A member of the RNA family "Vault RNA" from Physeter macrocephalus, 94 nucleotides long. NCBI's taxonomy places the organism under Eukaryota, Craniata, Sarcopterygii, Eutheria, Physeter. About the family: This family of RNAs are found as part of the enigmatic vault ribonucleoprotein complex. It is annotated as a non-coding RNA gene.
[Rfam]
RNA sequence: AGGUCGGCUUUAGCUGAAGCGGUUACUCCGUUCCAUCGGACUUUCUGAUUCCUAUAUUGGGGUUUGAGACCCGUGGGUGCUUUCUCACCCUUUU
Numbered sequence: 001a002g003g004u005c006g007g008c009u010u011u012a013g014c015u016g017a018a019g020c021g022g023u024u025a026c027u028c029c030g031u032u033c034c035a036u037c038g039g040a041c042u043u044u045c046u047g048a049u050u051c052c053u054a055u056a057u058u059g060g061g062g063u064u065u066g067a068g069a070c071c072c073g074u075g076g077g078u079g080c081u082u083u084c085u086c087a088c089c090c091u092u093u094u
Base pairs, nucleotide, nucleotide: 002089003088004087006085007084013078014077015076019074020073021072022071027068029066030065